[Rfam]
RNA: TPP riboswitch aptamer (THI element)
RNA sequence: AGGCCAUCCCCGGGGUGCCACGAGGCUGAGAGCGCGGUAGAAGUCCGCGAGACCCGUCGAACCUGAACCGAUUAGCAUCGGCGGAGGGAGUGGCUGGUCAUCCGUU
Numbered sequence: 001a002g003g004c005c006a007u008c009c010c011c012g013g014g015g016u017g018c019c020a021c022g023a024g025g026c027u028g029a030g031a032g033c034g035c036g037g038u039a040g041a042a043g044u045c046c047g048c049g050a051g052a053c054c055c056g057u058c059g060a061a062c063c064u065g066a067a068c069c070g071a072u073u074a075g076c077a078u079c080g081g082c083g084g085a086g087g088g089a090g091u092g093g094c095u096g097g098u099c100a101u102c103c104g105u106u
Stems, first nucleotide, its partner, number of pairs: 006095001008093002011056004016050001017026003033049005062087003068081004